[Rfam]
RNA sequence: CGCGCACGCCCCUUUCCGGGCGUUUCCUCCCUAUUAAACUUUUCGCCCCGGGCUCGUCCCGGGGCUUUUUCUUUAGGGCG
Numbered sequence: 001c002g003c004g005c006a007c008g009c010c011c012c013u014u015u016c017c018g019g020g021c022g023u024u025u026c027c028u029c030c031c032u033a034u035u036a037a038a039c040u041u042u043u044c045g046c047c048c049c050g051g052g053c054u055c056g057u058c059c060c061g062g063g064g065c066u067u068u069u070u071c072u073u074u075a076g077g078g079c080g
Stems, first nucleotide, its partner, number of pairs: 008021004045065008
RNA: Makes More Granules Regulator RNA (mmgR)
Organism: alpha proteobacterium U9-1i